This 69-nucleotide RNA sequence from Xenopus laevis belongs to the Rfam family "MAT2A 3'UTR stem loop A". Lineage of the source: Eukaryota > Metazoa > Chordata > Euteleostomi > Xenopus.
Nucleotides: 069
Base pairs, nucleotide, nucleotide: 001069002068003067004066009059010058011057013055014054015052016051020046023043024042025041026034027033
Number, partner (000 for none) and nucleotide at each position: 001069g002068c003067u004066u005000u006000u007000c008000c009059u010058c011057c012000u013055c014054a015052g016051a017000c018000c019000c020046a021000c022000u023043g024042g025041c026034g027033u028000u029000a030000u031000a032000u033027a034026c035000a036000g037000a038000g039000a040000a041025g042024c043023c044000u045000g046020u047000a048000g049000g050000a051016u052015c053000c054014u055013g056000u057011g058010g059009g060000a061000g062000g063000a064000a065000a066004a067003g068002g069001c
The family's RNA type in Rfam is cis-regulatory element. The base pairs follow the family's consensus structure, which is taken from published work.